[Rfam]
RNA sequence: UAAGGCCCUAGCCCCAAGAACUGCUGUUUCAUAUAGCAACAAUUUAAACAGAGGUGCUACCAGGAAGUGGAUCUCGUUGCCUUUGGGGGCUGUGGUCAUGCCUCUCAAAGUGAAUUUGGAGGGUCUACAUCC
Numbered sequence: 001u002a003a004g005g006c007c008c009u010a011g012c013c014c015c016a017a018g019a020a021c022u023g024c025u026g027u028u029u030c031a032u033a034u035a036g037c038a039a040c041a042a043u044u045u046a047a048a049c050a051g052a053g054g055u056g057c058u059a060c061c062a063g064g065a066a067g068u069g070g071a072u073c074u075c076g077u078u079g080c081c082u083u084u085g086g087g088g089g090c091u092g093u094g095g096u097c098a099u100g101c102c103u104c105u106c107a108a109a110g111u112g113a114a115u116u117u118g119g120a121g122g123g124u125c126u127a128c129a130u131c132c
Stems, first nucleotide, its partner, number of pairs: 003058002007054003019044002022041002025038004069125002072122004081110005086104005
The family of this 132-nucleotide sequence from Delphinapterus leucas is "Small nucleolar RNA SNORA68". A search with the family's covariance model found it, with a score of 101 bits. For this family Rfam cites "The family of box ACA small nucleolar RNAs is defined by an evolutionarily conserved secondary structure and ubiquitous sequence elements essential for RNA accumulation" (Ganot et al., Genes Dev, 1997). The family's RNA type in Rfam is H/ACA-box small nucleolar RNA. Taxonomically the source falls in Delphinapterus (Eukaryota, Eumetazoa, Sarcopterygii, Dipnotetrapodomorpha). Pairs were carried over by alignment from the consensus structure, which was predicted with PFOLD. About the family: U68 is a member of the H/ACA class of small nucleolar RNAs (snoRNAs) which act as guides in the the modification of uridines to pseudouridines.